RNA sequence: GCGGCAUCAAUGAUGUAUUCCUCCUUUAGUUAUCCUUGCACUUUGAUUGUCAGUGAAGAAAUUUAUAGGGGAAAUUGCUAACUGAGAUGCUU
Numbered sequence: 001g002c003g004g005c006a007u008c009a010a011u012g013a014u015g016u017a018u019u020c021c022u023c024c025u026u027u028a029g030u031u032a033u034c035c036u037u038g039c040a041c042u043u044u045g046a047u048u049g050u051c052a053g054u055g056a057a058g059a060a061a062u063u064u065a066u067a068g069g070g071g072a073a074a075u076u077g078c079u080a081a082c083u084g085a086g087a088u089g090c091u092u
Stems, first nucleotide, its partner, number of pairs: 003091006
RNA: Small nucleolar RNA snoR26
Organism: Cocos nucifera